[Rfam]
RNA sequence: CCAGGUUGAGGUAGUAGGUUGUAUAGUUGAGGAUUGCACCAAAGGCGAUAACUGUACAACUUCCUAGCUUCCCCUGA
Numbered sequence: 001c002c003a004g005g006u007u008g009a010g011g012u013a014g015u016a017g018g019u020u021g022u023a024u025a026g027u028u029g030a031g032g033a034u035u036g037c038a039c040c041a042a043a044g045g046c047g048a049u050a051a052c053u054g055u056a057c058a059a060c061u062u063c064c065u066a067g068c069u070u071c072c073c074c075u076g077a
Stems, first nucleotide, its partner, number of pairs: 002076004008070003012066003016062012040047001
RNA: let-7 microRNA precursor family
Organism: Gadus morhua